[Rfam]
RNA sequence: AAUGUCGUAAAAGCGCCAGGACCAUUCCGUGAACGGGUGAAAAGGAAUGGUUGACGAGGUGGAGGUUUAUCGAGUUUUCGGCGGAUGCCUCCCGGCAGCGGGCCGCUGCCGUAGGGCUGUCCGACAAAACGUCUGGGAAACCUGACGCACAAUAGGACAGCACGGUCUCUU
Numbered sequence: 001a002a003u004g005u006c007g008u009a010a011a012a013g014c015g016c017c018a019g020g021a022c023c024a025u026u027c028c029g030u031g032a033a034c035g036g037g038u039g040a041a042a043a044g045g046a047a048u049g050g051u052u053g054a055c056g057a058g059g060u061g062g063a064g065g066u067u068u069a070u071c072g073a074g075u076u077u078u079c080g081g082c083g084g085a086u087g088c089c090u091c092c093c094g095g096c097a098g099c100g101g102g103c104c105g106c107u108g109c110c111g112u113a114g115g116g117c118u119g120u121c122c123g124a125c126a127a128a129a130c131g132u133c134u135g136g137g138a139a140a141c142c143u144g145a146c147g148c149a150c151a152a153u154a155g156g157a158c159a160g161c162a163c164g165g166u167c168u169c170u171u
Stems, first nucleotide, its partner, number of pairs: 020052008061092005070081004093111006116161007130147004135142002

Source information
The record is a 171-nucleotide sequence from Aneurinibacillus sp. XH2, which matches "glmS glucosamine-6-phosphate activated ribozyme aptamer" in Rfam. NCBI's taxonomy places the organism under Bacteria, Bacillota, Bacilli, Caryophanales, Aneurinibacillus.